[Rfam]
RNA sequence: GUGCCAUUUUGAGGUUGCUACAGUAUUUCAGAAGGCUAACACAGAAGGGUAAGGGAAAGAACUCUCCAUAAAACCCAGAGAAGAGAUGGCAAACCUCCUCUUGGGAUCCUGUCUGGAGUCACAGUU
Numbered sequence: 001g002u003g004c005c006a007u008u009u010u011g012a013g014g015u016u017g018c019u020a021c022a023g024u025a026u027u028u029c030a031g032a033a034g035g036c037u038a039a040c041a042c043a044g045a046a047g048g049g050u051a052a053g054g055g056a057a058a059g060a061a062c063u064c065u066c067c068a069u070a071a072a073a074c075c076c077a078g079a080g081a082a083g084a085g086a087u088g089g090c091a092a093a094c095c096u097c098c099u100c101u102u103g104g105g106a107u108c109c110u111g112u113c114u115g116g117a118g119u120c121a122c123a124g125u126u
Base pairs, nucleotide, nucleotide: 002051003050004049005048007046008045009044010043014040015039016038017037019035064118065117066116067115068114075105076104078102079101080100081099083097084096085095